[Rfam]
RNA sequence: AUCCCGGUGCAUGGGCACUUCGUGCGUCAGUGAAGAUUCGUCUGAGACCACGAUUUUGCUAGUUGAAAACUACAACUAUGACCGCUCUUGUUGGCCCGCAAGGGUCGGCAAGGAAUCUUUGGAACCCUUUGGG
Numbered sequence: 001a002u003c004c005c006g007g008u009g010c011a012u013g014g015g016c017a018c019u020u021c022g023u024g025c026g027u028c029a030g031u032g033a034a035g036a037u038u039c040g041u042c043u044g045a046g047a048c049c050a051c052g053a054u055u056u057u058g059c060u061a062g063u064u065g066a067a068a069a070c071u072a073c074a075a076c077u078a079u080g081a082c083c084g085c086u087c088u089u090g091u092u093g094g095c096c097c098g099c100a101a102g103g104g105u106c107g108g109c110a111a112g113g114a115a116u117c118u119u120u121g122g123a124a125c126c127c128u129u130u131g132g133g
Base pairs, nucleotide, nucleotide: 020053021052022051023050024049026048027047028046034043035042036041086113087112088111089110090109091108092107093106094105095104096103097102